Overview:
Shown here is a 51-nucleotide RNA from Alphaproteobacteria bacterium HT1-32, a member of the family "ffh sRNA". A search with the family's covariance model found it, with a score of 37 bits. It is annotated as a small RNA. NCBI's taxonomy places the organism under Bacteria, Pseudomonadati, Pseudomonadota, Alphaproteobacteria.

RNA sequence: CUACACGGGGGUCCGCCAGUCCGCGAGGGUUCGCGCACUGGCGCAUUUGCG
Dot-bracket structure: .............(((((((..((((....))))..)))))))........